[Rfam]
RNA sequence: UAUAUUUGCACCUCAAUUCUGAGAGCCAGAAUUGUUUGCAUAAAAAUUAUUUAAACAAAUAUUGGAAUG
Numbered sequence: 001u002a003u004a005u006u007u008g009c010a011c012c013u014c015a016a017u018u019c020u021g022a023g024a025g026c027c028a029g030a031a032u033u034g035u036u037u038g039c040a041u042a043a044a045a046a047u048u049a050u051u052u053a054a055a056c057a058a059a060u061a062u063u064g065g066a067a068u069g
Base pairs, nucleotide, nucleotide: 014034015033016032017031018030019029
The record is a 69-nucleotide RNA, which matches "S15-Flavobacteria ribosomal protein leader" in Rfam. The family is grouped with related families in Rfam's "Ribosomal Protein S15 Leader clan". For this family Rfam cites "Discovery of 20 novel ribosomal leader candidates in bacteria and archaea" (Eckert and Weinberg, BMC Microbiol, 2020). The family's consensus secondary structure is taken from published work. It is annotated as a cis-regulatory leader.